[Rfam]
RNA sequence: AUAAAGGUGGAGGGGGCCAUAGCAGAAGCAUUCAUGUUGUGACCCCUGCCAGAUAACACCUGUAAUAACUACAAAUUCUGCU
Numbered sequence: 001a002u003a004a005a006g007g008u009g010g011a012g013g014g015g016g017c018c019a020u021a022g023c024a025g026a027a028g029c030a031u032u033c034a035u036g037u038u039g040u041g042a043c044c045c046c047u048g049c050c051a052g053a054u055a056a057c058a059c060c061u062g063u064a065a066u067a068a069c070u071a072c073a074a075a076u077u078c079u080g081c082u
Base pairs, nucleotide, nucleotide: 013046014045015044016043018041021082022081023080024079025078026077027076028040029039030038051070052069054067055066
RNA: Mammalian CPEB3 ribozyme